[Rfam]
RNA sequence: CGGGCCGAGAGGCGCUGCGACGGAACUCCUUUCCGCCACGCUCGGCCCGCGACACGCAUCCAAGGGCGCCUCCCGCGA
Numbered sequence: 001c002g003g004g005c006c007g008a009g010a011g012g013c014g015c016u017g018c019g020a021c022g023g024a025a026c027u028c029c030u031u032u033c034c035g036c037c038a039c040g041c042u043c044g045g046c047c048c049g050c051g052a053c054a055c056g057c058a059u060c061c062a063a064g065g066g067c068g069c070c071u072c073c074c075g076c077g078a
Stems, first nucleotide, its partner, number of pairs: 002048007021035005
Rfam assigns this 78-nucleotide RNA sequence from Amycolatopsis sp. SID8362 to the family "SAH (S-adenosyl-L-homocysteine) riboswitch aptamer". The family has 52 seed sequences and 1,354 matches in Rfam 15.1.